A member of the RNA family "HNH endonuclease-associated RNA and ORF (HEARO) RNA" from Leptolyngbyaceae cyanobacterium LF-bin-369, 241 nucleotides long. Taxonomically the source falls in Leptolyngbyaceae (Bacteria, Bacillati, Cyanophyceae, Leptolyngbyales). Rfam classes the family as a non-coding RNA gene. A reference for the family is Weinberg et al. (2009), "Exceptional structured noncoding RNAs revealed by bacterial metagenome analysis", Nature.
RNA sequence: GUAAACCAACCCCUUGCUAAAGCAAGAGGCUUUAAGGACUGCAAGGCACUUGCGUGCUUAAGCAGACUGGACAAGCCGGGUUUACCAGACUAAGGCUUUACUGCCUACGUUGGAGAGGCCAUCAUACCGAGGAAUGCGUGCUAGUUCCUCGCUCUAUGCUCGAAAGUUAAAAGUCCGAUAGGGUUAUUGGGCGGUGCUUAGAGAUUACAAACCUUUCCAACAUUGUCGAAGCAAACAUUAC
Numbered sequence: 001g002u003a004a005a006c007c008a009a010c011c012c013c014u015u016g017c018u019a020a021a022g023c024a025a026g027a028g029g030c031u032u033u034a035a036g037g038a039c040u041g042c043a044a045g046g047c048a049c050u051u052g053c054g055u056g057c058u059u060a061a062g063c064a065g066a067c068u069g070g071a072c073a074a075g076c077c078g079g080g081u082u083u084a085c086c087a088g089a090c091u092a093a094g095g096c097u098u099u100a101c102u103g104c105c106u107a108c109g110u111u112g113g114a115g116a117g118g119c120c121a122u123c124a125u126a127c128c129g130a131g132g133a134a135u136g137c138g139u140g141c142u143a144g145u146u147c148c149u150c151g152c153u154c155u156a157u158g159c160u161c162g163a164a165a166g167u168u169a170a171a172a173g174u175c176c177g178a179u180a181g182g183g184u185u186a187u188u189g190g191g192c193g194g195u196g197c198u199u200a201g202a203g204a205u206u207a208c209a210a211a212c213c214u215u216u217c218c219a220a221c222a223u224u225g226u227c228g229a230a231g232c233a234a235a236c237a238u239u240a241c
Base pairs, nucleotide, nucleotide: 001085002084003083004082005081006080007079010029011028013026014025016023017022030046031045032044033043088227089226090225092223093106094105095104096103109221110220111219112218113217114216115215116214117213118212124157125156128151129150130149131148132147133146134145135144139234140232141231142230159203160202161201164199165198166197167196171195173192174191175190176189177188178187179186